[Rfam]
RNA sequence: GGGUUCGGUGCGGCGGCCGGUCUUCCAAAGGACCACCGGGGAGAAAGAACCCCCACCAAACCCCACCCUUUCCCUCCCGGGCCGGACGCUCACUCGUGCGAGUGAAAGUCACCAACUGGGCUGGAUUCGGGAGGGGUUGCCUGCUUUACGCUCGGCUCGACCGGCAUAUGCCACCAGACAUGCGUCGGCCCUCGCUGGGACGGCAAUCCCAAGACGAGGGCCUGACCACAAGGAAGAAGCAACCUUCCCG
Numbered sequence: 001g002g003g004u005u006c007g008g009u010g011c012g013g014c015g016g017c018c019g020g021u022c023u024u025c026c027a028a029a030g031g032a033c034c035a036c037c038g039g040g041g042a043g044a045a046a047g048a049a050c051c052c053c054c055a056c057c058a059a060a061c062c063c064c065a066c067c068c069u070u071u072c073c074c075u076c077c078c079g080g081g082c083c084g085g086a087c088g089c090u091c092a093c094u095c096g097u098g099c100g101a102g103u104g105a106a107a108g109u110c111a112c113c114a115a116c117u118g119g120g121c122u123g124g125a126u127u128c129g130g131g132a133g134g135g136g137u138u139g140c141c142u143g144c145u146u147u148a149c150g151c152u153c154g155g156c157u158c159g160a161c162c163g164g165c166a167u168a169u170g171c172c173a174c175c176a177g178a179c180a181u182g183c184g185u186c187g188g189c190c191c192u193c194g195c196u197g198g199g200a201c202g203g204c205a206a207u208c209c210c211a212a213g214a215c216g217a218g219g220g221c222c223u224g225a226c227c228a229c230a231a232g233g234a235a236g237a238a239g240c241a242a243c244c245u246u247c248c249c250g
Base pairs, nucleotide, nucleotide: 008229009228010227016077019074090105091104092103093102094101095100120156121155122154123153124152187222188221189220190219191218193216194215197210198209199208200207232248233247234246235245236244
About this RNA: The record is a 250-nucleotide RNA sequence from Streptomyces vietnamensis, which matches "Streptomyces sRNA 4677" in Rfam. Taxonomically the source falls in Streptomyces (Bacteria, Bacillati, Actinomycetes, Streptomycetaceae). Located in the intergenic region between anti-sigma factor SCO4677 gene and a putative regulatory protein gene SCO4676. scr4677 expression requires the SCO4677 activity and scr4677 sRNA itself seem to affect the levels of the SCO4676-associated transcripts. For this family Rfam cites "Complex intra-operonic dynamics mediated by a small RNA in Streptomyces coelicolor" (Hindra et al., PLoS One, 2014).